A member of the RNA family "MIR1520 microRNA precursor family" from Glycine soja, 120 nucleotides long.
Its family is annotated with RISC complex and miRNA-mediated post-transcriptional gene silencing in the Gene Ontology.

[Rfam]
RNA sequence: UUCUUAUUGGAUGAUGAAUGACGCAUGUCAUGUUCUGAUUGGAUGUCAAAUCCAUGGAAGAUGAAAUGCAUUGUUGUUGUCAUUGGCCAAUCAGAACAUGACACGUGACAUUCAUCAUCC
Numbered sequence: 001u002u003c004u005u006a007u008u009g010g011a012u013g014a015u016g017a018a019u020g021a022c023g024c025a026u027g028u029c030a031u032g033u034u035c036u037g038a039u040u041g042g043a044u045g046u047c048a049a050a051u052c053c054a055u056g057g058a059a060g061a062u063g064a065a066a067u068g069c070a071u072u073g074u075u076g077u078u079g080u081c082a083u084u085g086g087c088c089a090a091u092c093a094g095a096a097c098a099u100g101a102c103a104c105g106u107g108a109c110a111u112u113c114a115u116c117a118u119c120c
Base pairs, nucleotide, nucleotide: 020109022107023106026103029100030099031098033096034095035094036093038091039090040089